[Rfam]
RNA sequence: UGGCGGGUGGGGAGGCCCUGGCGCCACUAACCCUAAUGGCUGCCGCCGCGCUCCCCGCGCCGCCCGCUGUUUUACUCGCUGACUUUCAGCGGGCGAGGGGAGCAGCCGGGGGGGGAUGUGGGGGGGGGGAGGGAAGGGGGUCCGCCAACCAAAAAACGUCAGCGAGGGGCCUCCUCACCCCGGCCCGCCCUGGGGUCCCUGUCCCCCUCCCCGCCCUCACCCCUCGCAGUCGGGGACCCGCCGCGGAGGCUCCCGCCGCCGCCCCCGUCCGGAGGCCGCGGUCGGCCGGUUCCCGCCACUGCCGCCGCGAAGAGUUCGUCUCUGUCAGCCUCGGCGGCGGCCGGGAGCGGAGGGGCAGCGCCCCAGCUCCGUGCGGGGCUUUUUUAGGGGGGGGGGGCCGGGCCCCCGGCAGAGCAAAACGGGAGCGGCGCCCCCGGGCCAACGCCGCGCCUCCCUCAGCC
Numbered sequence: 001u002g003g004c005g006g007g008u009g010g011g012g013a014g015g016c017c018c019u020g021g022c023g024c025c026a027c028u029a030a031c032c033c034u035a036a037u038g039g040c041u042g043c044c045g046c047c048g049c050g051c052u053c054c055c056c057g058c059g060c061c062g063c064c065c066g067c068u069g070u071u072u073u074a075c076u077c078g079c080u081g082a083c084u085u086u087c088a089g090c091g092g093g094c095g096a097g098g099g100g101a102g103c104a105g106c107c108g109g110g111g112g113g114g115g116a117u118g119u120g121g122g123g124g125g126g127g128g129g130a131g132g133g134a135a136g137g138g139g140g141u142c143c144g145c146c147a148a149c150c151a152a153a154a155a156a157c158g159u160c161a162g163c164g165a166g167g168g169g170c171c172u173c174c175u176c177a178c179c180c181c182g183g184c185c186c187g188c189c190c191u192g193g194g195g196u197c198c199c200u201g202u203c204c205c206c207c208u209c210c211c212c213g214c215c216c217u218c219a220c221c222c223c224u225c226g227c228a229g230u231c232g233g234g235g236a237c238c239c240g241c242c243g244c245g246g247a248g249g250c251u252c253c254c255g256c257c258g259c260c261g262c263c264c265c266c267g268u269c270c271g272g273a274g275g276c277c278g279c280g281g282u283c284g285g286c287c288g289g290u291u292c293c294c295g296c297c298a299c300u301g302c303c304g305c306c307g308c309g310a311a312g313a314g315u316u317c318g319u320c321u322c323u324g325u326c327a328g329c330c331u332c333g334g335c336g337g338c339g340g341c342c343g344g345g346a347g348c349g350g351a352g353g354g355g356c357a358g359c360g361c362c363c364c365a366g367c368u369c370c371g372u373g374c375g376g377g378g379c380u381u382u383u384u385u386a387g388g389g390g391g392g393g394g395g396g397g398c399c400g401g402g403c404c405c406c407c408g409g410c411a412g413a414g415c416a417a418a419a420c421g422g423g424a425g426c427g428g429c430g431c432c433c434c435c436g437g438g439c440c441a442a443c444g445c446c447g448c449g450c451c452u453c454c455c456u457c458a459g460c461c
Stems, first nucleotide, its partner, number of pairs: 002185003005180014050103005061095009078163006084156003189409002192406004235362001237360001238358001240356002249348007258338005277309005283304004288297003311323004
RNA: Vertebrate telomerase RNA